[Rfam]
RNA sequence: GGUCAGUGAUGAAUAGUAAAAGGUCUGAUGCCCUGAUUUUCCCCCAGUUUCCAUUUUGCUCCCAGAAGCCUCUGCUCUAUUCCCAGCAUGCUCUAGCUGUGUAGCGUUGGGCUCAGGGGCGUCUGACAGAUAGGAUGACCUCUCAGCCUGUGUCUCCUGGAGAACAAGGGGUCACAGUGAUGAUGGACAUCCAACAUAGCCAAUUUAUAUGGAGUUUCAGGGUCUGGGGUAAGAUCAGGCAAAUGACCUCAAGUUUUCAAGCUGAGACC
Number, nucleotide and partner (000 for none) at each position: 001g269002g268003u267004c266005a000006g000007u000008g000009a000010u000011g000012a000013a000014u000015a000016g000017u000018a000019a000020a000021a000022g000023g000024u000025c000026u000027g000028a000029u000030g000031c000032c000033c000034u000035g250036a249037u000038u000039u246040u245041c000042c000043c227044c226045c000046a000047g223048u222049u000050u000051c000052c000053a000054u000055u000056u000057u000058g000059c214060u213061c212062c211063c125064a124065g123066a122067a000068g120069c119070c000071u000072c000073u000074g000075c000076u000077c000078u000079a000080u000081u000082c111083c110084c109085a108086g107087c106088a000089u104090g000091c101092u000093c000094u000095a000096g000097c000098u000099g000100u000101g091102u000103a000104g089105c000106g087107u086108u085109g084110g083111g082112c000113u000114c000115a000116g000117g000118g000119g069120c068121g000122u066123c065124u064125g063126a000127c000128a000129g000130a000131u000132a000133g192134g191135a190136u189137g188138a000139c186140c000141u000142c000143u000144c000145a000146g000147c000148c000149u176150g175151u174152g173153u000154c171155u170156c169157c168158u167159g000160g000161a000162g000163a000164a000165c000166a000167a158168g157169g156170g155171g154172u000173c152174a151175c150176a149177g000178u000179g000180a000181u000182g000183a000184u000185g000186g139187a000188c137189a136190u135191c134192c133193a000194a000195c000196a000197u000198a000199g000200c000201c000202a000203a000204u000205u000206u000207a000208u000209a000210u000211g062212g061213a060214g059215u000216u000217u000218c000219a000220g000221g000222g048223u047224c000225u000226g044227g043228g000229g000230u000231a000232a000233g000234a000235u000236c000237a000238g000239g000240c000241a000242a000243a000244u000245g040246a039247c000248c000249u036250c035251a000252a000253g000254u000255u000256u000257u000258c000259a000260a000261g000262c000263u000264g000265a000266g004267a003268c002269c001
Small Cajal body specific RNA 6: a 269-nucleotide RNA from Albula goreensis. Rfam's curators write: U88 is small Cajal body specific RNA (scaRNA). scaRNAs are a novel class of small nuclear RNAs which localise to the Cajal bodies. U88 is found associated with both fibrillarin and Gar1p and co-localises with coilin in Cajal bodies. By type it is a small Cajal body RNA. On this family, see Huttenhofer et al., EMBO J 2001: "RNomics: an experimental approach that identifies 201 candidates for novel, small, non-messenger RNAs in mouse".